[Rfam]
RNA sequence: GAGUUGCUCCUCUCUGGCAGGCUAAGUGCCUCAGGCACGGAGCCGCAGCGAAAGCGAGUCCGAACAGGGCGCCAGAGUCAGAGGGGGCAGACGCGAAACCGGGUGAGCUACCCUUGGCCAGGUUGAAGCGUGGGUAAGACCACGUGGAGGACCGAACCGGUUGGCGUUGAAAAGCCAUCGGAUGAGCUGAGGGUAGGGGUGAAAGGCCAACCAAACCCGGAGAUAGCUCGUA
Numbered sequence: 001g002a003g004u005u006g007c008u009c010c011u012c013u014c015u016g017g018c019a020g021g022c023u024a025a026g027u028g029c030c031u032c033a034g035g036c037a038c039g040g041a042g043c044c045g046c047a048g049c050g051a052a053a054g055c056g057a058g059u060c061c062g063a064a065c066a067g068g069g070c071g072c073c074a075g076a077g078u079c080a081g082a083g084g085g086g087g088c089a090g091a092c093g094c095g096a097a098a099c100c101g102g103g104u105g106a107g108c109u110a111c112c113c114u115u116g117g118c119c120a121g122g123u124u125g126a127a128g129c130g131u132g133g134g135u136a137a138g139a140c141c142a143c144g145u146g147g148a149g150g151a152c153c154g155a156a157c158c159g160g161u162u163g164g165c166g167u168u169g170a171a172a173a174g175c176c177a178u179c180g181g182a183u184g185a186g187c188u189g190a191g192g193g194u195a196g197g198g199g200u201g202a203a204a205g206g207c208c209a210a211c212c213a214a215a216c217c218c219g220g221a222g223a224u225a226g227c228u229c230g231u232a
Stems, first nucleotide, its partner, number of pairs: 005089003009086010020044004026038003048055002058070004092230002095227001099220006108196011119184001121153004128145006157181003162177004198208003
Bacterial large subunit ribosomal RNA: a 232-nucleotide part of an RNA from Rhodothermus marinus. Rfam links the family to the GO terms structural constituent of ribosome and ribosome. Clan: LSU clan. The family's consensus secondary structure is taken from published work. NCBI's taxonomy places the organism under Bacteria, Pseudomonadati, Rhodothermota, Rhodothermus, Rhodothermus marinus.